[Rfam]
This 171-nucleotide sequence from Sporomusa acidovorans belongs to the Rfam family "Lysine riboswitch aptamer". The source organism's lineage runs through Bacteria, Negativicutes, Selenomonadales, Sporomusaceae and Sporomusa acidovorans. The family's consensus secondary structure is taken from published work. The match comes from Rfam's covariance-model search (113 bits). Rfam links the family to the GO term lysine biosynthetic process.

RNA sequence: GGAUGAAGUAGAGGUGCGGGAAUCAAAAGUACUUUCAGGGAGAGUGGCGUCAUUGAACUGGAAGGAAAGGGGCUACCGCCGAAGUAAGAAAGACGGCCAAAUCUUCUUACUGGUCUUAUAUCAAAUAGAUUUAAGACUGUCACCAUUACUUGGUGGAGCGCUAUCUCAUCU
Numbered sequence: 001g002g003a004u005g006a007a008g009u010a011g012a013g014g015u016g017c018g019g020g021a022a023u024c025a026a027a028a029g030u031a032c033u034u035u036c037a038g039g040g041a042g043a044g045u046g047g048c049g050u051c052a053u054u055g056a057a058c059u060g061g062a063a064g065g066a067a068a069g070g071g072g073c074u075a076c077c078g079c080c081g082a083a084g085u086a087a088g089a090a091a092g093a094c095g096g097c098c099a100a101a102u103c104u105u106c107u108u109a110c111u112g113g114u115c116u117u118a119u120a121u122c123a124a125a126u127a128g129a130u131u132u133a134a135g136a137c138u139g140u141c142a143c144c145a146u147u148a149c150u151u152g153g154u155g156g157a158g159c160g161c162u163a164u165c166u167c168a169u170c171u
Stems, first nucleotide, its partner, number of pairs: 006166001008164004016079004021074001023072002032064007083111008092102001112138007120130003140156006